[Rfam]
RNA: Small nucleolar RNA SNORA15
RNA sequence: GCAUGGGUGAAUUCUGCAUUGGCUUUUACAGUAGCUAAUGGAGUCAGACACCAUGCAAGAAUAAAGUUUGCCUCGGAUUCGUUUAAUGACAUGCUGUGCUAAAACAGUGUGCACGGGUCUGAAAAGGAUACACCG
Numbered sequence: 001g002c003a004u005g006g007g008u009g010a011a012u013u014c015u016g017c018a019u020u021g022g023c024u025u026u027u028a029c030a031g032u033a034g035c036u037a038a039u040g041g042a043g044u045c046a047g048a049c050a051c052c053a054u055g056c057a058a059g060a061a062u063a064a065a066g067u068u069u070g071c072c073u074c075g076g077a078u079u080c081g082u083u084u085a086a087u088g089a090c091a092u093g094c095u096g097u098g099c100u101a102a103a104a105c106a107g108u109g110u111g112c113a114c115g116g117g118u119c120u121g122a123a124a125a126g127g128a129u130a131c132a133c134c135g
Stems, first nucleotide, its partner, number of pairs: 001056006014043002017040003069128001071126001073122005084117001090111007